[Rfam]
This 94-nucleotide RNA sequence from Aedoeadaptatus ivorii belongs to the Rfam family "Selenocysteine transfer RNA".
RNA sequence: GGGAGUAGAUAGGUUUCUGGUGUGCCUCGCGGUCUUCAAAACCGUUGUGAGAAGUUCGUAGCUUCUUAGGUGGGUUCGAUUCCCACAUGCUCCC
Numbered sequence: 001g002g003g004a005g006u007a008g009a010u011a012g013g014u015u016u017c018u019g020g021u022g023u024g025c026c027u028c029g030c031g032g033u034c035u036u037c038a039a040a041a042c043c044g045u046u047g048u049g050a051g052a053a054g055u056u057c058g059u060a061g062c063u064u065c066u067u068a069g070g071u072g073g074g075u076u077c078g079a080u081u082c083c084c085a086c087a088u089g090c091u092c093c094c
Base pairs, nucleotide, nucleotide: 001094002093003092004091005090006089007088008086011027012026013025014024017022029045030044031043032042033041048068049067050066051065052064071085072084073083074082
The source organism's lineage runs through Bacteria, Bacillati, Bacillota, Tissierellales and Aedoeadaptatus.